[Rfam]
RNA sequence: UUGCAAUGAUGACUUGAGAAUCUGUCAAUCCACUGAGUGUGAUCGCUGAUGUCUCCAUGUCUCUGAGCAG
Numbered sequence: 001u002u003g004c005a006a007u008g009a010u011g012a013c014u015u016g017a018g019a020a021u022c023u024g025u026c027a028a029u030c031c032a033c034u035g036a037g038u039g040u041g042a043u044c045g046c047u048g049a050u051g052u053c054u055c056c057a058u059g060u061c062u063c064u065g066a067g068c069a070g
Stems, first nucleotide, its partner, number of pairs: 001070004

Description
The family of this 70-nucleotide sequence from Peromyscus maniculatus is "Small nucleolar RNA SNORD110". The organism belongs to Peromyscus maniculatus, within Eukaryota. On this family, see Galardi et al., Mol Cell Biol 2002: "Purified box C/D snoRNPs are able to reproduce site-specific 2'-O-methylation of target RNA in vitro". Rfam classes the family as a C/D-box small nucleolar RNA. Its family is annotated with nucleolus and RNA processing in the Gene Ontology. The base pairs follow the family's consensus structure.